[Rfam]
RNA sequence: AGGAUUACCUUAAAAGGAAGCACUGAUUUGUGAAAUGAUCAUAAGUGCUUCACUUUGGGGUAGUUUUU
Numbered sequence: 001a002g003g004a005u006u007a008c009c010u011u012a013a014a015a016g017g018a019a020g021c022a023c024u025g026a027u028u029u030g031u032g033a034a035a036u037g038a039u040c041a042u043a044a045g046u047g048c049u050u051c052a053c054u055u056u057g058g059g060g061u062a063g064u065u066u067u068u
Stems, first nucleotide, its partner, number of pairs: 004064008014055003019049006026042001028041001
This 68-nucleotide sequence from Danionella cerebrum belongs to the Rfam family "miR-430 microRNA precursor family". The family has 32 seed sequences and 24,817 matches in Rfam 15.1. The literature on the family includes a 2005 paper in Science by Giraldez et al., "MicroRNAs regulate brain morphogenesis in zebrafish". Gene Ontology terms of the family: RISC complex and miRNA-mediated post-transcriptional gene silencing. The source organism's lineage runs through Eukaryota, Eumetazoa, Vertebrata, Danioninae and Danionella.